[Rfam]
RNA: Streptomyces sRNA 4677
RNA sequence: GUAUGGGGUGAGUACUCGGGAAGUGAAAGGACCUCGCCAGACCCCUCCAGCCUCCCGAGCGGGCGGCUGGGGGGCGCUUCGCUCGGAUGGGUGAACCGGGCCAACUCGGCUGGCUUUCACGGGGGUUGCCGGGCAUAUGCUCGGCGCGACAACUCCAGACAUACGUCGGCCCCCGACGGGACUCGCAAUCCCGGUCGGGGGCCUGGCCAGCCAGGAAGCGAACGCCUUCCCG
Numbered sequence: 001g002u003a004u005g006g007g008g009u010g011a012g013u014a015c016u017c018g019g020g021a022a023g024u025g026a027a028a029g030g031a032c033c034u035c036g037c038c039a040g041a042c043c044c045c046u047c048c049a050g051c052c053u054c055c056c057g058a059g060c061g062g063g064c065g066g067c068u069g070g071g072g073g074g075c076g077c078u079u080c081g082c083u084c085g086g087a088u089g090g091g092u093g094a095a096c097c098g099g100g101c102c103a104a105c106u107c108g109g110c111u112g113g114c115u116u117u118c119a120c121g122g123g124g125g126u127u128g129c130c131g132g133g134c135a136u137a138u139g140c141u142c143g144g145c146g147c148g149a150c151a152a153c154u155c156c157a158g159a160c161a162u163a164c165g166u167c168g169g170c171c172c173c174c175g176a177c178g179g180g181a182c183u184c185g186c187a188a189u190c191c192c193g194g195u196c197g198g199g200g201g202c203c204u205g206g207c208c209a210g211c212c213a214g215g216a217a218g219c220g221a222a223c224g225c226c227u228u229c230c231c232g
Stems, first nucleotide, its partner, number of pairs: 001056001079094006109145005168203005174197002178192004214230005